Shown here is a 56-nucleotide sequence from Halalkalibacter wakoensis, a member of the family "Streptococcus sRNA SpF59 (ldcC RNA)". It scores 64 bits against the family's covariance model. Pairs were carried over by alignment from the consensus structure, which was predicted with mfold. NCBI's taxonomy places the organism under Bacteria, Caryophanales, Bacillaceae, Halalkalibacter, Halalkalibacter wakoensis. Rfam classes the family as a small RNA.
[Rfam]
RNA sequence: UGACCACUUACGAACAAGUAAGUUAAAGCCAUACGGACAGCUAGGUCAAAUGCCGA
Numbered sequence: 001u002g003a004c005c006a007c008u009u010a011c012g013a014a015c016a017a018g019u020a021a022g023u024u025a026a027a028g029c030c031a032u033a034c035g036g037a038c039a040g041c042u043a044g045g046u047c048a049a050a051u052g053c054c055g056a
Stems, first nucleotide, its partner, number of pairs: 001048005006023006